This 147-nucleotide sequence from Lynx pardinus belongs to the Rfam family "Small nucleolar RNA SNORA79".
Pairs were carried over by alignment from the consensus structure, which was predicted with RNAalifold.
Rfam describes the family as follows. ACA65 (SNORA79) is a member of the H/ACA class of snoRNAs that guide the sites of modification of uridines to pseudouridines.
By type it is an H/ACA-box small nucleolar RNA.
RNA sequence: UGAUGGCUGUUCCUCUCACUGCUUAGAGCUUAGGUAGUGAGAUUUUAGUCCAUCAUAUAUCCAAGCUGACUUGUUUUCACUCAAGGCACCAUGGGGAUGGGUUGGCCGUCCGUUAGUGUCUUCUGAUUUUUGCGGAGUCAAACAAUU
Numbered sequence: 001u002g003a004u005g006g007c008u009g010u011u012c013c014u015c016u017c018a019c020u021g022c023u024u025a026g027a028g029c030u031u032a033g034g035u036a037g038u039g040a041g042a043u044u045u046u047a048g049u050c051c052a053u054c055a056u057a058u059a060u061c062c063a064a065g066c067u068g069a070c071u072u073g074u075u076u077u078c079a080c081u082c083a084a085g086g087c088a089c090c091a092u093g094g095g096g097a098u099g100g101g102u103u104g105g106c107c108g109u110c111c112g113u114u115a116g117u118g119u120c121u122u123c124u125g126a127u128u129u130u131u132g133c134g135g136a137g138u139c140a141a142a143c144a145a146u147u
Stems, first nucleotide, its partner, number of pairs: 001055006008048001014042005020036004068139005081126003084121006095111005